[Rfam]
This 172-nucleotide sequence from Penicillium salamii belongs to the Rfam family "Small nucleolar RNA snR80". By type it is an H/ACA-box small nucleolar RNA. Clan: SNORA28 clan. Taxonomically the source falls in Penicillium (Eukaryota, Fungi, saccharomyceta, Aspergillaceae). A search with the family's covariance model found it, with a score of 51 bits.
RNA sequence: AGAACCCCCACAACACUCUGGCGCUUACUGUUCUCUCCCUACGGGGUUUGAUCAUAUUAUAACGUGGUAUACGCUUAUUUUAAGUGGGGAAGAGAAAACCAGUCCCAUUACUCACCGCGGUAUCCUUAGAGCUUGCUCCGUGGGUGCAGUGGUCCAUAUUUCGGGUCUACAU
Numbered sequence: 001a002g003a004a005c006c007c008c009c010a011c012a013a014c015a016c017u018c019u020g021g022c023g024c025u026u027a028c029u030g031u032u033c034u035c036u037c038c039c040u041a042c043g044g045g046g047u048u049u050g051a052u053c054a055u056a057u058u059a060u061a062a063c064g065u066g067g068u069a070u071a072c073g074c075u076u077a078u079u080u081u082a083a084g085u086g087g088g089g090a091a092g093a094g095a096a097a098a099c100c101a102g103u104c105c106c107a108u109u110a111c112u113c114a115c116c117g118c119g120g121u122a123u124c125c126u127u128a129g130a131g132c133u134u135g136c137u138c139c140g141u142g143g144g145u146g147c148a149g150u151g152g153u154c155c156a157u158a159u160u161u162c163g164g165g166u167c168u169a170c171a172u
Stems, first nucleotide, its partner, number of pairs: 007089003020075004026069006102167001104165002115152004120147003124144003